[Rfam]
RNA sequence: UCUAGUUAAAGGCAAACCUUUCGAAAGAGGGGGACGCAAAGCUACGGGUCUAAGACUGUGGUUCAGUUAAGGCCGCCGGGUUAUCUAG
Numbered sequence: 001u002c003u004a005g006u007u008a009a010a011g012g013c014a015a016a017c018c019u020u021u022c023g024a025a026a027g028a029g030g031g032g033g034a035c036g037c038a039a040a041g042c043u044a045c046g047g048g049u050c051u052a053a054g055a056c057u058g059u060g061g062u063u064c065a066g067u068u069a070a071g072g073c074c075g076c077c078g079g080g081u082u083a084u085c086u087a088g
Stems, first nucleotide, its partner, number of pairs: 012037002017032006040082004045078003048073003055067004
A member of the RNA family "c-di-GMP-I riboswitch aptamer" from Alteribacter lacisalsi, 88 nucleotides long. GEMM was predicted in a large-scale screen for bacterial structured RNA regulatory elements. Its Rfam clan is "c-di-GMP_I riboswitch clan". NCBI's taxonomy places the organism under Bacteria, Bacillati, Bacillota, Bacillaceae, Alteribacter. For this family Rfam cites "Identification of 22 candidate structured RNAs in bacteria using the CMfinder comparative genomics pipeline" (Weinberg et al., Nucleic Acids Res, 2007).